The family of this 159-nucleotide sequence from Sutterella wadsworthensis is "SAM-I/IV (S-adenosyl methionine) riboswitch aptamer". Rfam 15.1 lists 567 matches to the family in 508 species. Pairs were carried over by alignment from the consensus structure, which is taken from published work. The family is grouped with related families in Rfam's "SAM clan".
RNA sequence: UCACAGCAUGAAGAGAGGUAAUCCAGUAAGGGUUUACCCGCCAACCUGCCUUCUCGGGCAAGGUGGUUCGGAGCUGCAUCGGAGCCCACCUCCCUGCAGUCCCAUGCGGCCGAGAGCCUCUGAGAGAGGUUUCAGCAGUCGGUAAAGAGAGCGAGAUCU
Numbered sequence: 001u002c003a004c005a006g007c008a009u010g011a012a013g014a015g016a017g018g019u020a021a022u023c024c025a026g027u028a029a030g031g032g033u034u035u036a037c038c039c040g041c042c043a044a045c046c047u048g049c050c051u052u053c054u055c056g057g058g059c060a061a062g063g064u065g066g067u068u069c070g071g072a073g074c075u076g077c078a079u080c081g082g083a084g085c086c087c088a089c090c091u092c093c094c095u096g097c098a099g100u101c102c103c104a105u106g107c108g109g110c111c112g113a114g115a116g117c118c119u120c121u122g123a124g125a126g127a128g129g130u131u132u133c134a135g136c137a138g139u140c141g142g143u144a145a146a147g148a149g150a151g152c153g154a155g156a157u158c159u
Stems, first nucleotide, its partner, number of pairs: 006107005015039001017038005040067003045063003048059003052155001054153001109143004
Dot-bracket structure: .....(((((....(.(((((............))))))(((..((((((.[.[..))).))).)))...................................))))).((((...........................)))).........].]....